[Rfam]
Shown here is a 117-nucleotide RNA from Caballeronia telluris, a member of the family "Guanidine-I riboswitch aptamer". NCBI's taxonomy places the organism under Bacteria, Pseudomonadati, Pseudomonadota, Burkholderiales, Caballeronia. This family represents a conserved RNA structure found upstream of the ykkC and yxkD genes in Bacillus subtilis and related genes in other bacteria.
Nucleotides: 117
Base pairs, nucleotide, nucleotide: 007065008064009063010062011061012060015055016054020052021051022049023047024046025045066090067089068088069087070086071085092112094115098110099109100108
Number, partner (000 for none) and nucleotide at each position: 001000c002000a003000a004000a005000u006000g007065g008064a009063c010062g011061a012060c013000u014000a015055g016054g017000g018000u019000u020052c021051c022049g023047g024046u025045c026000c027000g028000c029000g030000g031000g032000c033000a034000a035000g036000a037000a038000g039000c040000c041000c042000a043000a044000c045025g046024a047023u048000g049022c050000u051021g052020g053000u054016c055015c056000g057000a058000g059000a060012g061011u062010u063009g064008u065007c066090g067089a068088c069087c070086u071085c072000a073000a074000a075000g076000g077000c078000a079000c080000u081000g082000c083000g084000c085071g086070a087069g088068g089067u090066u091000a092112c093000a094115c095000g096000g097000c098110g099109g100108g101000a102000u103000a104000a105000a106000a107000g108100c109099c110098c111000g112092g113000g114000a115094g116000a117000g